[Rfam]
RNA: Small nucleolar RNA SNORA33
RNA sequence: GUUCCUGUUUUAAAAUUGCCAUUUAUGUGUUUGUGCAGACGUACUUUAAAAACUGGCAAUAGUAAAGCCAUGUUACGAGCCUUAAGGACAUUGAAGUCGUUAAGGUCCCUGGAAGUGGCUAUAACA
Numbered sequence: 001g002u003u004c005c006u007g008u009u010u011u012a013a014a015a016u017u018g019c020c021a022u023u024u025a026u027g028u029g030u031u032u033g034u035g036c037a038g039a040c041g042u043a044c045u046u047u048a049a050a051a052a053c054u055g056g057c058a059a060u061a062g063u064a065a066a067g068c069c070a071u072g073u074u075a076c077g078a079g080c081c082u083u084a085a086g087g088a089c090a091u092u093g094a095a096g097u098c099g100u101u102a103a104g105g106u107c108c109c110u111g112g113a114a115g116u117g118g119c120u121a122u123a124a125c126a
Stems, first nucleotide, its partner, number of pairs: 005038004067119004079106007087098003
Dot-bracket structure: ....((((..........................))))............................((((........(((((((.(((......))).))))))).........)))).......